This 266-nucleotide sequence from Marinithermofilum abyssi belongs to the Rfam family "Bacterial large signal recognition particle RNA".
Rfam's curators write: The signal recognition particle (SRP) is a universally conserved ribonucleoprotein involved in the co-translational targeting of proteins to membranes.
The family's consensus secondary structure is taken from published work.
It scores 221 bits against the family's covariance model.
For this family Rfam cites "SRPDB: Signal Recognition Particle Database" (Rosenblad et al., Nucleic Acids Res, 2003).
Gene Ontology terms of the family: SRP-dependent cotranslational protein targeting to membrane, signal sequence recognition and signal recognition particle, plasma membrane targeting.

[Rfam]
RNA sequence: CCGUGCUAGGCGGGGAGUUAGCGGUGCCCUGUACCCGUAAUCCGCUGUAACGGGGCUGAAUUCCCGCUUGAGGUCUUUUUUGUGUGGGGUCAGGCCCAUGUGAGAAGCGUUGAAGACCAGGUCCUGCGCAACGGGAACCUCCGAACCGUGUCAGGUCCUGACGGAAGCAGCACUAAGGAGACUUUUCCGUGUGCCGCAGGGGUGCCUGGUCUGAGCCGAUUGCAUGGACACCGCCCAGGCAAGAGAGAUCAAUGGCGGGUGCACGG
Numbered sequence: 001c002c003g004u005g006c007u008a009g010g011c012g013g014g015g016a017g018u019u020a021g022c023g024g025u026g027c028c029c030u031g032u033a034c035c036c037g038u039a040a041u042c043c044g045c046u047g048u049a050a051c052g053g054g055g056c057u058g059a060a061u062u063c064c065c066g067c068u069u070g071a072g073g074u075c076u077u078u079u080u081u082g083u084g085u086g087g088g089g090u091c092a093g094g095c096c097c098a099u100g101u102g103a104g105a106a107g108c109g110u111u112g113a114a115g116a117c118c119a120g121g122u123c124c125u126g127c128g129c130a131a132c133g134g135g136a137a138c139c140u141c142c143g144a145a146c147c148g149u150g151u152c153a154g155g156u157c158c159u160g161a162c163g164g165a166a167g168c169a170g171c172a173c174u175a176a177g178g179a180g181a182c183u184u185u186u187c188c189g190u191g192u193g194c195c196g197c198a199g200g201g202g203u204g205c206c207u208g209g210u211c212u213g214a215g216c217c218g219a220u221u222g223c224a225u226g227g228a229c230a231c232c233g234c235c236c237a238g239g240c241a242a243g244a245g246a247g248a249u250c251a252a253u254g255g256c257g258g259g260u261g262c263a264c265g266g
Base pairs, nucleotide, nucleotide: 001266002265003264004263005262006261009057010056011055012030013029014028015027017025018024019023034054035053036052037051038050063259064258065257066256067255068254072250073249074248075247076246079243080242081241082240083239085237086236087235088234093229096227097226098225099224100223101222104221105220107216108215114212115211116210117209118208119207120206121205122204123200124199125198126197127196128195129191130190132189133188134187135186136185139180140179141178142177148173149172150171151170156165157164158163